[Rfam]
RNA sequence: CGGCUGUAGCCAAAUUGAAAUUCGGUUAGGGAAGUUUACUGGCCGGUUGUUGUUACAUCCAUUUUUAGGUCUCGUCGACAAAUCUGCUUACCGAGCUUCUCACACUC
Dot-bracket structure: ............................((((((((....(((.((((((((.......................)))).)))).))).....))))))))......

Source information:
This 107-nucleotide sequence from Arachis duranensis belongs to the Rfam family "Small nucleolar RNA snoR109". The literature on the family includes a 2002 paper in Curr Biol by Marker et al., "Experimental RNomics: identification of 140 candidates for small non-messenger RNAs in the plant Arabidopsis thaliana". Gene Ontology terms of the family: RNA processing and nucleolus. By type it is an H/ACA-box small nucleolar RNA. Lineage of the source: Eukaryota > Tracheophyta > Euphyllophyta > Magnoliopsida > Arachis.